RNA sequence: UUGUUUCUUCAGGGCAGGGUGAAAUUCCCGACCGGCGGUGAUAGUCCGCGAGUCGACAGUAUUGUCGAUUGAACUGGUGAGAUUCCAGUACCGACAGUAAAGUCUGGAUGGGAGAAGAAUAAU
Number, nucleotide and partner (000 for none) at each position: 001u000002u000003g000004u000005u119006u118007c117008u116009u115010c114011a000012g000013g000014g000015c000016a000017g029018g028019g027020u000021g000022a000023a000024a000025u000026u000027c019028c018029c017030g000031a103032c102033c093034g092035g049036c048037g047038g046039u000040g000041a000042u000043a000044g091045u090046c038047c037048g036049c035050g000051a000052g069053u068054c067055g000056a000057c000058a000059g000060u000061a000062u000063u000064g000065u000066c000067g054068a053069u052070u000071g000072a000073a089074c088075u087076g086077g085078u000079g000080a000081g000082a000083u000084u000085c077086c076087a075088g074089u073090a045091c044092c034093g033094a000095c106096a105097g104098u000099a000100a000101a000102g032103u031104c097105u096106g095107g000108a000109u000110g000111g000112g000113a000114g010115a009116a008117g007118a006119a005120u000121a000122a000123u000
This 123-nucleotide sequence from Andreesenella acetica belongs to the Rfam family "FMN riboswitch aptamer (RFN element)". Rfam links the family to the GO term FMN binding. About the family: The RFN element is a highly conserved domain that is found frequently in the 5'-untranslated regions of prokaryotic mRNAs that encode for flavin mononucleotide (FMN) biosynthesis and transport proteins. Taxonomically the source falls in Andreesenella (Bacteria, Bacillati, Peptostreptococcales, Natronincolaceae). Pairs were carried over by alignment from the consensus structure, which is taken from published work.